[Rfam]
RNA sequence: GGGGACGAUUCAGGAUUCGACGGGCAUGAGAAGGGUAUGAACUGCAACCCGGGCUUUGACCAUCCCGUCCCGUAAGGGAUCCCGGUUAUCGGGAUAAAACUGGUCAGGCAAAAAUAAAUGCCAACAAUAAUUACGCACUGGCAGCUUAAUUAACGCUGCCACGCUGCUUCGCCUCCAAUCCACCGGGGGUGAAGUAAGCGUCGUUUUUGGGUGGAUGGUGAAGAUGGCGUCGCCCGGAAGCCAUCGACACCUAACAUAACCGGGCUGGUCUGCUAACAGGCAAGCUGGUUGGCCAGUUAGCAGACGAGAAUAAACAACCAGCUAUGGUUGUAGAAGUUCAUACUGGUCCAUGUCCGGACCCGGGUUCGACUCCCGGCGUCUCCACUA
Numbered sequence: 001g002g003g004g005a006c007g008a009u010u011c012a013g014g015a016u017u018c019g020a021c022g023g024g025c026a027u028g029a030g031a032a033g034g035g036u037a038u039g040a041a042c043u044g045c046a047a048c049c050c051g052g053g054c055u056u057u058g059a060c061c062a063u064c065c066c067g068u069c070c071c072g073u074a075a076g077g078g079a080u081c082c083c084g085g086u087u088a089u090c091g092g093g094a095u096a097a098a099a100c101u102g103g104u105c106a107g108g109c110a111a112a113a114a115u116a117a118a119u120g121c122c123a124a125c126a127a128u129a130a131u132u133a134c135g136c137a138c139u140g141g142c143a144g145c146u147u148a149a150u151u152a153a154c155g156c157u158g159c160c161a162c163g164c165u166g167c168u169u170c171g172c173c174u175c176c177a178a179u180c181c182a183c184c185g186g187g188g189g190u191g192a193a194g195u196a197a198g199c200g201u202c203g204u205u206u207u208u209g210g211g212u213g214g215a216u217g218g219u220g221a222a223g224a225u226g227g228c229g230u231c232g233c234c235c236g237g238a239a240g241c242c243a244u245c246g247a248c249a250c251c252u253a254a255c256a257u258a259a260c261c262g263g264g265c266u267g268g269u270c271u272g273c274u275a276a277c278a279g280g281c282a283a284g285c286u287g288g289u290u291g292g293c294c295a296g297u298u299a300g301c302a303g304a305c306g307a308g309a310a311u312a313a314a315c316a317a318c319c320a321g322c323u324a325u326g327g328u329u330g331u332a333g334a335a336g337u338u339c340a341u342a343c344u345g346g347u348c349c350a351u352g353u354c355c356g357g358a359c360c361c362g363g364g365u366u367c368g369a370c371u372c373c374c375g376g377c378g379u380c381u382c383c384a385c386u387a
Base pairs, nucleotide, nucleotide: 001383002382003381004380005379006378007377021356022355023354024353025352026351027350028349030347034344035343036342037341038340039339040338041337042336043335045330046329047328048327049326050072051071052070053069056107057106058105059104060103061102062101139161140160141159142158143157144156145155162200163199164198165197167194168193169192170191172189173188174187175186179214180213183210184209217251218250219249220248223245224244225243232265233264234263235262236261268305269304270303271302272301273300274299275298276297277296279294280293281292284322285321286320287319289317290316291315360376361375362374363373364372
The record is a 387-nucleotide RNA from Caldithrix abyssi, which matches "transfer-messenger RNA" in Rfam. From the family's description: Bacterial tmRNA, also known as 10Sa RNA or SsrA, is named for its dual tRNA and mRNA-like properties. Its role is to liberate the mRNA from a stalled ribosome. To accomplish this part of the tmRNA is used as a reading frame that ends in a translation stop signal. The broken mRNA is replaced in the ribosome by the tmRNA and translation of the tmRNA leads to addition of a proteolysis tag to the incomplete protein enabling recognition by a protease. Recently a number of permuted tmRNA genes have been found encoded in two parts. tmRNAs have been identified in eubacteria and some chloroplasts but are absent from archaeal and eukaryote nuclear genomes. The source organism's lineage runs through Bacteria, Pseudomonadati, Calditrichales, Calditrichaceae and Caldithrix abyssi. Pairs were carried over by alignment from the consensus structure, which is taken from published work. It is annotated as a non-coding RNA gene.